[Rfam]
RNA: Ascomycota telomerase RNA, nucleotides 1141 to 1549
RNA sequence: AACAUACAGAAGAAGUUCUCAUCUCAUGAGCGUUUCAGGCCUAUCGUGCUUAUAUGCAACCACAAAAAGAAAAAAAAGUCCAGAUGACAGGUCGAGGAGGGCACCAGAAGUUUUGUGCGGCGGAAAACGCAACCGAAGUUCUGAAACUGAGGCAUCUUCUUCGACGUCUUUGCAUGCGAAAUUGUCAGUACUGGGAUUAGUCUUGGGACCCAUCUCGUGUUGGAGUCAGAGUUUCGUACUCGUCCGGGGCUAUUUCCAAUCGCAAGUUGCGUCAAAGUGCGAAGGCGAGGUUUCCUUUUGAAAGAAUCUUCUCACCAUUGGCUUGAGAGGGCAGGCCCAUCUAAAAUUAAGGUAGCCCUGGUUGUCCUCGUGCCUGCAAUGGUAGGAGGACAGCCCCCCAUCUUUGAGG
Numbered sequence: 001a002a003c004a005u006a007c008a009g010a011a012g013a014a015g016u017u018c019u020c021a022u023c024u025c026a027u028g029a030g031c032g033u034u035u036c037a038g039g040c041c042u043a044u045c046g047u048g049c050u051u052a053u054a055u056g057c058a059a060c061c062a063c064a065a066a067a068a069g070a071a072a073a074a075a076a077a078g079u080c081c082a083g084a085u086g087a088c089a090g091g092u093c094g095a096g097g098a099g100g101g102c103a104c105c106a107g108a109a110g111u112u113u114u115g116u117g118c119g120g121c122g123g124a125a126a127a128c129g130c131a132a133c134c135g136a137a138g139u140u141c142u143g144a145a146a147c148u149g150a151g152g153c154a155u156c157u158u159c160u161u162c163g164a165c166g167u168c169u170u171u172g173c174a175u176g177c178g179a180a181a182u183u184g185u186c187a188g189u190a191c192u193g194g195g196a197u198u199a200g201u202c203u204u205g206g207g208a209c210c211c212a213u214c215u216c217g218u219g220u221u222g223g224a225g226u227c228a229g230a231g232u233u234u235c236g237u238a239c240u241c242g243u244c245c246g247g248g249g250c251u252a253u254u255u256c257c258a259a260u261c262g263c264a265a266g267u268u269g270c271g272u273c274a275a276a277g278u279g280c281g282a283a284g285g286c287g288a289g290g291u292u293u294c295c296u297u298u299u300g301a302a303a304g305a306a307u308c309u310u311c312u313c314a315c316c317a318u319u320g321g322c323u324u325g326a327g328a329g330g331g332c333a334g335g336c337c338c339a340u341c342u343a344a345a346a347u348u349a350a351g352g353u354a355g356c357c358c359u360g361g362u363u364g365u366c367c368u369c370g371u372g373c374c375u376g377c378a379a380u381g382g383u384a385g386g387a388g389g390a391c392a393g394c395c396c397c398c399c400a401u402c403u404u405u406g407a408g409g
Base pairs, nucleotide, nucleotide: 207227208226209225210223211222212221229241230240231239232238